RNA sequence: GGGUGGAAUGAUGAUAACGAUUUUUCGGAUAUAUUAAUUUAUUCUGUCGACCAAAACUCAGACUACAAUUAUCUGACUAAUU
Numbered sequence: 001g002g003g004u005g006g007a008a009u010g011a012u013g014a015u016a017a018c019g020a021u022u023u024u025u026c027g028g029a030u031a032u033a034u035u036a037a038u039u040u041a042u043u044c045u046g047u048c049g050a051c052c053a054a055a056a057c058u059c060a061g062a063c064u065a066c067a068a069u070u071a072u073c074u075g076a077c078u079a080a081u082u
Stems, first nucleotide, its partner, number of pairs: 001082002004079003
RNA: Small nucleolar RNA Z155